The record is a 302-nucleotide RNA sequence from Populus deltoides, which matches "Plant signal recognition particle RNA" in Rfam. For this family Rfam cites "Towards the structure of the mammalian signal recognition particle" (Wild et al., Curr Opin Struct Biol, 2002). The source organism's lineage runs through Eukaryota, Streptophytina, Embryophyta, Spermatophyta and Populus.
RNA sequence: GCUGAGCCACGUAACAUAGGCUUGUAACCCGAGUGGGAGCUGUAAGGUGAUGGAACGUUGAUUCAGCGUAGAAGGUUGGGUUCGGAUCAGCUCGAUUCUGGCCUGCCCGCUUCAAGCUAGGAGUUGGUCCAAGGCAUCCUAGUGAAGACAUGGGUGUCAUGGUUUCUAGAGUGGAGGGUACAGCGUGAGGCUGGUUUAACAGAGCAGCGAUCACCUCCCUCUCCUGGCAGUGAAGGGAUAACGGGUCGGUGCUGUCGGAUCCAUAUGGCUUGAUGGGCUGGUCUGAUUGGACUAUCACUUUU
Numbered sequence: 001g002c003u004g005a006g007c008c009a010c011g012u013a014a015c016a017u018a019g020g021c022u023u024g025u026a027a028c029c030c031g032a033g034u035g036g037g038a039g040c041u042g043u044a045a046g047g048u049g050a051u052g053g054a055a056c057g058u059u060g061a062u063u064c065a066g067c068g069u070a071g072a073a074g075g076u077u078g079g080g081u082u083c084g085g086a087u088c089a090g091c092u093c094g095a096u097u098c099u100g101g102c103c104u105g106c107c108c109g110c111u112u113c114a115a116g117c118u119a120g121g122a123g124u125u126g127g128u129c130c131a132a133g134g135c136a137u138c139c140u141a142g143u144g145a146a147g148a149c150a151u152g153g154g155u156g157u158c159a160u161g162g163u164u165u166c167u168a169g170a171g172u173g174g175a176g177g178g179u180a181c182a183g184c185g186u187g188a189g190g191c192u193g194g195u196u197u198a199a200c201a202g203a204g205c206a207g208c209g210a211u212c213a214c215c216u217c218c219c220u221c222u223c224c225u226g227g228c229a230g231u232g233a234a235g236g237g238a239u240a241a242c243g244g245g246u247c248g249g250u251g252c253u254g255u256c257g258g259a260u261c262c263a264u265a266u267g268g269c270u271u272g273a274u275g276g277g278c279u280g281g282u283c284u285g286a287u288u289g290g291a292c293u294a295u296c297a298c299u300u301u302u
Stems, first nucleotide, its partner, number of pairs: 001040003004023005028037003044301010056289002058286003063281005069275002073271005078262008088254003092251001098249008107237002110235005116228008126165002129162003133158007142149002166171001173218005182211001184209003191202003